About this RNA: This 115-nucleotide sequence belongs to the Rfam family "TPP riboswitch aptamer (THI element)".
RNA sequence: AGUUGUUCUGGCGGGAGCUUGGGUAAGCCAGGCUGAGAGGGUAGCCGGGAGUCGCUACCGACCGUCUGUACCUGAUCCGGGUUAUGCCGGCGCAGGGAUGAGACGCCGGAGAUAA
Numbered sequence: 001a002g003u004u005g006u007u008c009u010g011g012c013g014g015g016a017g018c019u020u021g022g023g024u025a026a027g028c029c030a031g032g033c034u035g036a037g038a039g040g041g042u043a044g045c046c047g048g049g050a051g052u053c054g055c056u057a058c059c060g061a062c063c064g065u066c067u068g069u070a071c072c073u074g075a076u077c078c079g080g081g082u083u084a085u086g087c088c089g090g091c092g093c094a095g096g097g098a099u100g101a102g103a104c105g106c107c108g109g110a111g112a113u114a115a
Stems, first nucleotide, its partner, number of pairs: 006103002009100002011065004017033005040059005071096004077090004
Dot-bracket structure: .....((.((((((..(((((.......)))))......(((((..........)))))..)))).....((((..((((......))))..))))..)).))............